[Rfam]
RNA sequence: AGAUGAGAGAUACACCCCGCUCGCAGGCAACUGCGGGCGGCAUCAGGGCGGGGCCUCCCCAGCUUCACCCUGGUAGUGCCGUCGCGCACAACCGGAGCCUUGUGCUUCGGGUCUCCUCACCGAUCGGA
Number, nucleotide and partner (000 for none) at each position: 001a000002g000003a000004u119005g118006a117007g116008a000009g115010a114011u000012a000013c000014a000015c000016c000017c040018c039019g038020c037021u036022c035023g034024c033025a032026g031027g000028c000029a000030a000031c026032u025033g024034c023035g022036g021037g020038c019039g018040g017041c000042a074043u073044c072045a071046g070047g069048g000049c000050g066051g065052g064053g063054c062055c000056u000057c000058c000059c000060c000061a000062g054063c053064u052065u051066c050067a000068c000069c047070c046071u045072g044073g043074u042075a000076g089077u088078g087079c086080c000081g000082u000083c000084g000085c000086g079087c078088a077089c076090a000091a000092c110093c109094g108095g107096a106097g105098c104099c000100u000101u000102g000103u000104g098105c097106u096107u095108c094109g093110g092111g000112u000113c000114u010115c009116c007117u006118c005119a004120c127121c126122g000123a000124u000125c000126g121127g120128a000

The record is a 128-nucleotide sequence from Streptomyces apricus, which matches "Streptomyces RNA 5676" in Rfam. Rfam describes the family as follows. Identified by deep sequencing of transcriptome at the end of exponential growth phase. Appears longer on northern blot than sequencing transcript. This indicates processing step. Streptomyces specific. On this family, see Vockenhuber et al., RNA Biol 2011: "Deep sequencing-based identification of small non-coding RNAs in Streptomyces coelicolor". Taxonomically the source falls in Streptomyces (Bacteria, Actinomycetota, Actinomycetes, Streptomycetaceae). A search with the family's covariance model found it, with a score of 115 bits. It is annotated as a small RNA.